Rfam assigns this 141-nucleotide RNA from Takifugu rubripes to the family "Small nucleolar RNA SNORD10". The base pairs follow the family's consensus structure, which was predicted with WAR. Rfam classes the family as a C/D-box small nucleolar RNA. The source organism's lineage runs through Eukaryota, Eumetazoa, Euteleostomi, Osteoglossocephalai and Takifugu.
RNA sequence: UGUAUAGUGAUGAAACCCAUGCGUGUCAACUGAUUCUCUAAAACUCCUGCUGUGCUGGUGACCAGGCCGGCGUUUUGCUGGCUUGACUCAACAGUGCGGCAUGGCCUUGGAGGAAUGAUCAGCAUUGACUUUCUGAAUACA
Numbered sequence: 001u002g003u004a005u006a007g008u009g010a011u012g013a014a015a016c017c018c019a020u021g022c023g024u025g026u027c028a029a030c031u032g033a034u035u036c037u038c039u040a041a042a043a044c045u046c047c048u049g050c051u052g053u054g055c056u057g058g059u060g061a062c063c064a065g066g067c068c069g070g071c072g073u074u075u076u077g078c079u080g081g082c083u084u085g086a087c088u089c090a091a092c093a094g095u096g097c098g099g100c101a102u103g104g105c106c107u108u109g110g111a112g113g114a115a116u117g118a119u120c121a122g123c124a125u126u127g128a129c130u131u132u133c134u135g136a137a138u139a140c141a
Base pairs, nucleotide, nucleotide: 001141002140003139004138045104046103048101049100050099051098052097053096